[Rfam]
RNA sequence: UGAAGACGUGGCGACUGGCGUAUUCGGCCGUGACGCUUCGCGGCCGAGGUGGAACUGACCACCAGGGAGCUGACAGCGGACGUACCGCGCGCCUGGGUACUUCCG
Numbered sequence: 001u002g003a004a005g006a007c008g009u010g011g012c013g014a015c016u017g018g019c020g021u022a023u024u025c026g027g028c029c030g031u032g033a034c035g036c037u038u039c040g041c042g043g044c045c046g047a048g049g050u051g052g053a054a055c056u057g058a059c060c061a062c063c064a065g066g067g068a069g070c071u072g073a074c075a076g077c078g079g080a081c082g083u084a085c086c087g088c089g090c091g092c093c094u095g096g097g098u099a100c101u102u103c104c105g
Stems, first nucleotide, its partner, number of pairs: 005074001007072001010071003015066002017093005049062004082100005
RNA: ZMP/ZTP riboswitch aptamer (pfl RNA motif)
Organism: Phytoactinopolyspora halophila